Shown here is a 130-nucleotide RNA from Pteropus alecto, a member of the family "Small nucleolar RNA SNORA25". Rfam 15.1 lists 1,129 matches to the family in 449 species. Rfam describes the family as follows. ACA25 is a member of the H/ACA class of snoRNA that guide the sites of modification of uridines to pseudouridines. The family's RNA type in Rfam is H/ACA-box small nucleolar RNA.
[Rfam]
RNA sequence: AGGUCUUUUCAAAGAGAGCUAUGAGACCAAAGUCAGGAACUCUUAAUGCUGUGACCAAAGACUGAAGUUCUCCAUAAGAUGUAAUAGUUAGUUACUCAAUAGUGCUAUGUUUUCCUGAGAAGAUACGAGA
Number, nucleotide and partner (000 for none) at each position: 001a000002g056003g055004u054005c053006u000007u051008u000009u000010c000011a000012a000013a000014g044015a043016g042017a041018g040019c000020u038021a000022u036023g000024a000025g034026a033027c000028c000029a000030a000031a000032g000033u026034c025035a000036g022037g000038a020039a000040c018041u017042c016043u015044u014045a000046a000047u000048g000049c000050u000051g007052u000053g005054a004055c003056c002057a000058a000059a000060g000061a000062c000063u000064g000065a000066a000067g000068u000069u123070c122071u121072c000073c119074a000075u000076a116077a000078g114079a113080u000081g000082u000083a000084a108085u107086a106087g105088u000089u000090a000091g000092u000093u104094a103095c102096u101097c000098a000099a000100u000101a096102g095103u094104g093105c087106u086107a085108u084109g000110u000111u000112u000113u079114c078115c000116u076117g000118a000119g073120a000121a071122g070123a069124u000125a000126c000127g000128a000129g000130a000
Rfam links the family to the GO terms nucleolus and RNA processing.
It scores 91 bits against the family's covariance model.